[Rfam]
RNA sequence: UAAUAUAUAGGCCUUCUCUUCCCGGUUCUUCCCGGAGUCGGGAAAAGCUGGGUUGAGAGGGCACUAAAAAAUAAAU
Numbered sequence: 001u002a003a004u005a006u007a008u009a010g011g012c013c014u015u016c017u018c019u020u021c022c023c024g025g026u027u028c029u030u031c032c033c034g035g036a037g038u039c040g041g042g043a044a045a046a047g048c049u050g051g052g053u054u055g056a057g058a059g060g061g062c063a064c065u066a067a068a069a070a071a072u073a074a075a076u
Base pairs, nucleotide, nucleotide: 014059015058016057017056018055021052022051023050024049025048029044030043031042032041033040034039

The record is a 76-nucleotide sequence from Prolemur simus, which matches "mir-320 microRNA precursor family" in Rfam.
Rfam 15.1 lists 659 matches to the family in 129 species.